[Rfam]
RNA sequence: UGAAAAUUAAUCAUCUCUUUUCGUAUAAUUCCGGGAAUUGGCCCGGAAGUCUCUACGAGGUCACCGUAAUGAUCUGGCUACGAAAAGCGGGAUUGGCAUG
Numbered sequence: 001u002g003a004a005a006a007u008u009a010a011u012c013a014u015c016u017c018u019u020u021u022c023g024u025a026u027a028a029u030u031c032c033g034g035g036a037a038u039u040g041g042c043c044c045g046g047a048a049g050u051c052u053c054u055a056c057g058a059g060g061u062c063a064c065c066g067u068a069a070u071g072a073u074c075u076g077g078c079u080a081c082g083a084a085a086a087g088c089g090g091g092a093u094u095g096g097c098a099u100g
Stems, first nucleotide, its partner, number of pairs: 018086008029048007058075006
The family of this 100-nucleotide RNA from Paenibacillus roseus is "Purine riboswitch aptamer". From the family's description: Riboswitches are metabolite binding domains within certain messenger RNAs that serve as precision sensors for their corresponding targets. Taxonomically the source falls in Paenibacillus (Bacteria, Bacilli, Caryophanales, Paenibacillaceae).